RNA sequence: CCUGUGGAGCGUUACAUCAAACGCGAGUAGCCAUCGAGCUUGCUCGGGCAAAAACGGACGCAAUGAAGCAGGAA
Dot-bracket structure: (((((...(((((........((......(((..((........))))).....)))))))......)))))..
RNA: RAGATH-18 RNA